[Rfam]
RNA sequence: UAUCUUUGCGCCCGGAUUGAGCGUCAGUCCGGUACAUAAAAAUCAUUUACAACAAUAUUGGCAUG
Numbered sequence: 001u002a003u004c005u006u007u008g009c010g011c012c013c014g015g016a017u018u019g020a021g022c023g024u025c026a027g028u029c030c031g032g033u034a035c036a037u038a039a040a041a042a043u044c045a046u047u048u049a050c051a052a053c054a055a056u057a058u059u060g061g062c063a064u065g
Stems, first nucleotide, its partner, number of pairs: 014030006